[Rfam]
RNA sequence: AGGUGAGAUGAUGAAUGAUUAAUUUCCCUAUUGGUUUGAUUGGCCAACAUGAUGGCCUAUAUACUGAACCGAGUCUGAUCAUCA
Numbered sequence: 001a002g003g004u005g006a007g008a009u010g011a012u013g014a015a016u017g018a019u020u021a022a023u024u025u026c027c028c029u030a031u032u033g034g035u036u037u038g039a040u041u042g043g044c045c046a047a048c049a050u051g052a053u054g055g056c057c058u059a060u061a062u063a064c065u066g067a068a069c070c071g072a073g074u075c076u077g078a079u080c081a082u083c084a
Base pairs, nucleotide, nucleotide: 002083003082004081005080042057043056044055045054
The record is an 84-nucleotide RNA from Triticum aestivum, which matches "Small nucleolar RNA Z102/R77" in Rfam.
It scores 58 bits against the family's covariance model.
Its Rfam clan is "SNORD44 clan".
The literature on the family includes a 2001 paper in J Mol Biol by Barneche et al., "Identification of 66 box C/D snoRNAs in Arabidopsis thaliana: extensive gene duplications generated multiple isoforms predicting new ribosomal RNA 2'-O-methylation sites".